Rfam assigns this 81-nucleotide RNA sequence from Methylobacillus flagellatus to the family "SAH (S-adenosyl-L-homocysteine) riboswitch aptamer". NCBI's taxonomy places the organism under Bacteria, Betaproteobacteria, Nitrosomonadales, Methylobacillus, Methylobacillus flagellatus. The match comes from Rfam's covariance-model search (47 bits).
RNA sequence: UCUACCGAGGAACGUUGCAAGGAUGUUCAUCCCCAGGCUCGGUUGCCGCAGCGCAAGCUGUGUAAACGGCGUUCACCAGAU
Number, nucleotide and partner (000 for none) at each position: 001u000002c045003u000004a043005c042006c041007g040008a039009g000010g000011a000012a000013c000014g000015u000016u000017g000018c000019a000020a000021g032022g031023a030024u029025g000026u000027u000028c000029a024030u023031c022032c021033c000034c000035a000036g000037g000038c000039u008040c007041g006042g005043u004044u000045g002046c000047c000048g000049c000050a000051g000052c000053g000054c000055a000056a000057g000058c000059u000060g000061u000062g000063u000064a000065a000066a000067c000068g000069g000070c000071g000072u000073u000074c000075a000076c000077c000078a000079g000080a000081u000